[Rfam]
RNA sequence: GAGUGAAUCCGACCGGACACAACAUUCUGCAGCAAUGUUGUGCGACCUGCAGUGUCAGUCGGAUUCGCCC
Numbered sequence: 001g002a003g004u005g006a007a008u009c010c011g012a013c014c015g016g017a018c019a020c021a022a023c024a025u026u027c028u029g030c031a032g033c034a035a036u037g038u039u040g041u042g043c044g045a046c047c048u049g050c051a052g053u054g055u056c057a058g059u060c061g062g063a064u065u066c067g068c069c070c
Stems, first nucleotide, its partner, number of pairs: 001070001003068005009062005021039006044056003